[Rfam]
RNA: Bacterial RNase P class A
Organism: Azospirillum doebereinerae
RNA sequence: CCAGAUGGCUGGAUGGCCGCCUUCGGUGAAAACCGGGGGAGGAAAGUCCGGGCUCCACGGAAACACGGUGCCGGUUAAUGGCCGGCGGGGGCGACCCUAGGGACAGUGCCACAGAGAGCAGACCGCCGGUGUUUCGACACCGGUAAGGGUGAAAGGGUGCGGUAAGAGCGCACCGCGUUCCUGGCAACAGGAACGGCACGGUAAACCCCACCGGGAGCAAGACCGAAUAGGAGCGGCCCGGCCAUCCAUCCCCGUCAAACGGGAUGGCAUGGGGCCAAGCGCGUUUCCGCGCCGCCGCUCGGGUUGGUCGCGCGAGGCGUCCGGGCAACCGGCGUCCCAGACGAAUGGCCAUCGCCCGGACCUUCGGGUCCGGGACACAGAACCCGGCUUACAGGCCAUCUGGCGCU
Numbered sequence: 001c002c003a004g005a006u007g008g009c010u011g012g013a014u015g016g017c018c019g020c021c022u023u024c025g026g027u028g029a030a031a032a033c034c035g036g037g038g039g040a041g042g043a044a045a046g047u048c049c050g051g052g053c054u055c056c057a058c059g060g061a062a063a064c065a066c067g068g069u070g071c072c073g074g075u076u077a078a079u080g081g082c083c084g085g086c087g088g089g090g091g092c093g094a095c096c097c098u099a100g101g102g103a104c105a106g107u108g109c110c111a112c113a114g115a116g117a118g119c120a121g122a123c124c125g126c127c128g129g130u131g132u133u134u135c136g137a138c139a140c141c142g143g144u145a146a147g148g149g150u151g152a153a154a155g156g157g158u159g160c161g162g163u164a165a166g167a168g169c170g171c172a173c174c175g176c177g178u179u180c181c182u183g184g185c186a187a188c189a190g191g192a193a194c195g196g197c198a199c200g201g202u203a204a205a206c207c208c209c210a211c212c213g214g215g216a217g218c219a220a221g222a223c224c225g226a227a228u229a230g231g232a233g234c235g236g237c238c239c240g241g242c243c244a245u246c247c248a249u250c251c252c253c254g255u256c257a258a259a260c261g262g263g264a265u266g267g268c269a270u271g272g273g274g275c276c277a278a279g280c281g282c283g284u285u286u287c288c289g290c291g292c293c294g295c296c297g298c299u300c301g302g303g304u305u306g307g308u309c310g311c312g313c314g315a316g317g318c319g320u321c322c323g324g325g326c327a328a329c330c331g332g333c334g335u336c337c338c339a340g341a342c343g344a345a346u347g348g349c350c351a352u353c354g355c356c357c358g359g360a361c362c363u364u365c366g367g368g369u370c371c372g373g374g375a376c377a378c379a380g381a382a383c384c385c386g387g388c389u390u391a392c393a394g395g396c397c398a399u400c401u402g403g404c405g406c407u
Base pairs, nucleotide, nucleotide: 001403002402003401004400005399006398007397008396009395010394011392012353013352014351015350016349017348018347020039021038022037023036024035025034026033027032044390045389046388048387049386050385051384052383053217054216055215056214062286063285066213067212068211069210070209071085072084073083074082075081086100087098088097089096090095101208102207106206107205108202109201110200123148124147125144126143127142128141129140130139131138132137156174157173158172159171160170161169175197176195177194178193179192180191181190182189183188221309222308223307224306231300232299233298234297235296236295279292280291281290282289316336317335318334319333321332322331323330324329